Notes:
Shown here is a 150-nucleotide RNA sequence from Streptomyces sp. sk2.1, a member of the family "Streptomyces sRNA scr5239". It scores 118 bits against the family's covariance model. Its family is annotated with mRNA binding and negative regulation of translation in the Gene Ontology. The family's RNA type in Rfam is small RNA.
RNA sequence: CUUCCGCUCUCCCCGCACAGGAGGGCGGAUCGAGGUACCGCGCUCUCUGCCCUGACCGCGUCGGUACCUCUCCCCGGCCGGGGGCACCGCACACCGCCGGCCUUGCUCCGGGCUGCGGUGCCGGACGGGCUGAGGGUCCCGUCCCGGCGC
Numbered sequence: 001c002u003u004c005c006g007c008u009c010u011c012c013c014c015g016c017a018c019a020g021g022a023g024g025g026c027g028g029a030u031c032g033a034g035g036u037a038c039c040g041c042g043c044u045c046u047c048u049g050c051c052c053u054g055a056c057c058g059c060g061u062c063g064g065u066a067c068c069u070c071u072c073c074c075c076g077g078c079c080g081g082g083g084g085c086a087c088c089g090c091a092c093a094c095c096g097c098c099g100g101c102c103u104u105g106c107u108c109c110g111g112g113c114u115g116c117g118g119u120g121c122c123g124g125a126c127g128g129g130c131u132g133a134g135g136g137u138c139c140c141g142u143c144c145c146g147g148c149g150c
Stems, first nucleotide, its partner, number of pairs: 003029004008024005032070005038064003042059002044055002076102005084095001104120004109115002123144007